[Rfam]
RNA sequence: UGGACAGGGGGGUACCCGCCGCGGAGCGGGUCCUGUCCAGGAGGUUGCGCGAGAGCGUGGCCAGUGGUUGUCGCUCGGGGGUGAUCGCCG
Numbered sequence: 001u002g003g004a005c006a007g008g009g010g011g012g013u014a015c016c017c018g019c020c021g022c023g024g025a026g027c028g029g030g031u032c033c034u035g036u037c038c039a040g041g042a043g044g045u046u047g048c049g050c051g052a053g054a055g056c057g058u059g060g061c062c063a064g065u066g067g068u069u070g071u072c073g074c075u076c077g078g079g080g081g082u083g084a085u086c087g088c089c090g
Base pairs, nucleotide, nucleotide: 001039002038003037004036005035006034007033008032014031015030016029017028018027019026043062044061045060046059047058048057049056050055
RNA: che1 RNA